[Rfam]
RNA sequence: UAAAUGGUAGGCGAUGGAGCUCGCCUUUAACUAUUGCUAAAUAUAGCAAUUGAUGGCUCCUACUUGCUU
Dot-bracket structure: .........[[[[..((((((]]]].......(((((((....)))))))....)))))).........
Rfam assigns this 69-nucleotide RNA from Halanaerobacter jeridensis to the family "Fluoride riboswitch aptamer (crcB RNA motif)". On this family, see Zhao et al., Nat Chem Biol 2017: "An excited state underlies gene regulation of a transcriptional riboswitch".